[Rfam]
RNA sequence: AUGAGUAUACGGGGAGAGAACGCACCAGAUGCGUCGCCGAAGGAGCAAGUAAUGAAUAUUAUGAAUCUCUCAGGCAAAAGAACUCGUAUAGGACG
Numbered sequence: 001a002u003g004a005g006u007a008u009a010c011g012g013g014g015a016g017a018g019a020a021c022g023c024a025c026c027a028g029a030u031g032c033g034u035c036g037c038c039g040a041a042g043g044a045g046c047a048a049g050u051a052a053u054g055a056a057u058a059u060u061a062u063g064a065a066u067c068u069c070u071c072a073g074g075c076a077a078a079a080g081a082a083c084u085c086g087u088a089u090a091g092g093a094c095g
Stems, first nucleotide, its partner, number of pairs: 006090008020034004036075003039071002043069003049062002
RNA: Glycine riboswitch aptamer
Organism: Psychrobacillus soli